[Rfam]
RNA sequence: UGGGCAUUCGCCAAAUUGGUAAGGCGGCGGACCCUGGAUCCGCAAUGUACUGGUUCGAACCCAGUAUGCCCAA
Numbered sequence: 001u002g003g004g005c006a007u008u009c010g011c012c013a014a015a016u017u018g019g020u021a022a023g024g025c026g027g028c029g030g031a032c033c034c035u036g037g038a039u040c041c042g043c044a045a046u047g048u049a050c051u052g053g054u055u056c057g058a059a060c061c062c063a064g065u066a067u068g069c070c071c072a073a
Stems, first nucleotide, its partner, number of pairs: 001072007010025003027043005049065005
RNA: tRNA
Organism: Philodulcilactobacillus myokonensis